[Rfam]
RNA sequence: CAUUCGUAAUCGCUGAGUUUCCGGUUAUAAACCGGGAAACGGGGGAACCAAUCGAUGGCGCGCGACCGGUGUGAGAGCCGGGCAUCGUCAUCCGGGGUGAAUCCCGAAGCCGGCCGCACCUAAGAUGCGAACGGCUUCGGGUAGGGCGACUCUCACCGCCCGAAUCCGACAGCUAACCUCGUAAGCGUUGAGACAUGCAACC
Numbered sequence: 001c002a003u004u005c006g007u008a009a010u011c012g013c014u015g016a017g018u019u020u021c022c023g024g025u026u027a028u029a030a031a032c033c034g035g036g037a038a039a040c041g042g043g044g045g046a047a048c049c050a051a052u053c054g055a056u057g058g059c060g061c062g063c064g065a066c067c068g069g070u071g072u073g074a075g076a077g078c079c080g081g082g083c084a085u086c087g088u089c090a091u092c093c094g095g096g097g098u099g100a101a102u103c104c105c106g107a108a109g110c111c112g113g114c115c116g117c118a119c120c121u122a123a124g125a126u127g128c129g130a131a132c133g134g135c136u137u138c139g140g141g142u143a144g145g146g147c148g149a150c151u152c153u154c155a156c157c158g159c160c161c162g163a164a165u166c167c168g169a170c171a172g173c174u175a176a177c178c179u180c181g182u183a184a185g186c187g188u189u190g191a192g193a194c195a196u197g198c199a200a201c202c
Stems, first nucleotide, its partner, number of pairs: 011187004018038009039182006049094001095167003103141010144161004
c-di-AMP riboswitch aptamer (ydaO/yuaA leader): a 202-nucleotide RNA from Cohnella cholangitidis.
From the family's description: This family represents a conserved RNA structure found upstream of the ydaO and yuaA genes in Bacillus subtilis and related genes in other bacteria.
Lineage of the source: Bacteria > Bacillota > Caryophanales > Paenibacillaceae > Cohnella.